Record summary:
Shown here is an 86-nucleotide sequence from Paspalum vaginatum, a member of the family "Small nucleolar RNA Z102/R77". The literature on the family includes a 2003 paper in Nucleic Acids Res by Chen et al., "The high diversity of snoRNAs in plants: identification and comparative study of 120 snoRNA genes from Oryza sativa". Rfam links the family to the GO terms RNA processing and nucleolus.
RNA sequence: AGAUGUUUUGUUGAUCGAACUAUUUCCCUAUUGGUUAGAUUGGCAGCCAUGAUGGCUUACACUUUAUUAGCUCCAUCUAAUCAUCU
Numbered sequence: 001a002g003a004u005g006u007u008u009u010g011u012u013g014a015u016c017g018a019a020c021u022a023u024u025u026c027c028c029u030a031u032u033g034g035u036u037a038g039a040u041u042g043g044c045a046g047c048c049a050u051g052a053u054g055g056c057u058u059a060c061a062c063u064u065u066a067u068u069a070g071c072u073c074c075a076u077c078u079a080a081u082c083a084u085c086u
Stems, first nucleotide, its partner, number of pairs: 002085004042057003